[Rfam]
RNA sequence: UCGAGCCCCGCGGUGCUGUCGGACCCCCGACCUGGCAGCACCGCGGGGCUUCGU
Numbered sequence: 001u002c003g004a005g006c007c008c009c010g011c012g013g014u015g016c017u018g019u020c021g022g023a024c025c026c027c028c029g030a031c032c033u034g035g036c037a038g039c040a041c042c043g044c045g046g047g048g049c050u051u052c053g054u
Base pairs, nucleotide, nucleotide: 002053003052004051005049006048007047008046009045010044011043012042013041014040015039016038017037018036019035020034

The record is a 54-nucleotide RNA sequence from Labedaea rhizosphaerae, which matches "F6 TB sRNA" in Rfam. Pairs were carried over by alignment from the consensus structure, which is taken from published work. Rfam classes the family as a small RNA. Lineage of the source: Bacteria > Actinomycetota > Actinomycetes > Pseudonocardiaceae > Labedaea.